[Rfam]
RNA sequence: CGGGGAUAACGCAGGAUCCCCGGGAAGUUUCCCUUCAAGACGGUUUCCGUCCAAGCCCUGU
Number, nucleotide and partner (000 for none) at each position: 001c022002g021003g020004g019005g018006a017007u000008a000009a000010c000011g061012c060013a059014g058015g057016a000017u006018c005019c004020c003021c002022g001023g000024g000025a000026a000027g000028u000029u000030u000031c000032c000033c000034u000035u000036c000037a000038a000039g051040a050041c049042g048043g047044u000045u000046u000047c043048c042049g041050u040051c039052c000053a000054a000055g000056c000057c015058c014059u013060g012061u011
RNA: chrB-b RNA